About this RNA
Shown here is an 86-nucleotide RNA from Anguilla anguilla, a member of the family "let-7 microRNA precursor family". The family's consensus secondary structure was predicted with RNAalifold. About the family: This family represents the microRNAs (miRNA) let-7 and mir-98. let-7 was identified from a study of developmental timing in C. elegans, and was later shown to be part of a much larger class of non-coding RNAs termed miRNAs. A reference for the family is Rougvie (2001), "Control of developmental timing in animals", Nat Rev Genet.
RNA sequence: ACAGGAUGAGGUAGUAGGUUGUGUGGUUUCAGGGCAGUGAUAUUGCCCCAUUGGCAGAUAACAAUGCAACCUACUGCCUUCCCUGG
Numbered sequence: 001a002c003a004g005g006a007u008g009a010g011g012u013a014g015u016a017g018g019u020u021g022u023g024u025g026g027u028u029u030c031a032g033g034g035c036a037g038u039g040a041u042a043u044u045g046c047c048c049c050a051u052u053g054g055c056a057g058a059u060a061a062c063a064a065u066g067c068a069a070c071c072u073a074c075u076g077c078c079u080u081c082c083c084u085g086g
Stems, first nucleotide, its partner, number of pairs: 002085004008080017026062002032048004051056001